[Rfam]
The record is a 67-nucleotide sequence from Stegodyphus mimosarum, which matches "mir-29 microRNA precursor family" in Rfam. A reference for the family is Ambros (2001), "microRNAs: tiny regulators with great potential", Cell. About the family: This family represents the microRNA (miRNA) precursors mir-29. The family's consensus secondary structure was predicted with PFOLD. The match comes from Rfam's covariance-model search (47 bits). Rfam links the family to the GO terms gene silencing by miRNA and RISC complex.
RNA sequence: UAAAAACUGCGUUCCAUUGUUGCUGAUAGAAUUAGUUUAUAUCAGCAACAAUGGAACGCAGUUUUUA
Number, nucleotide and partner (000 for none) at each position: 001u067002a066003a065004a064005a062006a000007c061008u060009g059010c058011g057012u056013u055014c054015c053016a000017u051018u050019g049020u048021u047022g046023c000024u000025g043026a042027u000028a000029g000030a000031a000032u000033u000034a000035g000036u000037u000038u000039a000040u000041a000042u026043c025044a000045g000046c022047a021048a020049c019050a018051a017052u000053g015054g014055a013056a012057c011058g010059c009060a008061g007062u005063u000064u004065u003066u002067a001